Shown here is an 84-nucleotide RNA sequence from Thiohalocapsa sp. PB-PSB1, a member of the family "SAH (S-adenosyl-L-homocysteine) riboswitch aptamer". It scores 62 bits against the family's covariance model. Lineage of the source: Bacteria > Pseudomonadota > Gammaproteobacteria > Chromatiaceae > Thiohalocapsa.
RNA sequence: UUUUCCGAGGAGCGCUGCGACAGGAGCAUAGCGAUCCUGCCAGGCUCGGGGAGGUGAACCGACUGAUAACGGCGCUCACUCUGC
Numbered sequence: 001u002u003u004u005c006c007g008a009g010g011a012g013c014g015c016u017g018c019g020a021c022a023g024g025a026g027c028a029u030a031g032c033g034a035u036c037c038u039g040c041c042a043g044g045c046u047c048g049g050g051g052a053g054g055u056g057a058a059c060c061g062a063c064u065g066a067u068a069a070c071g072g073c074g075c076u077c078a079c080u081c082u083g084c
Stems, first nucleotide, its partner, number of pairs: 002052007021039005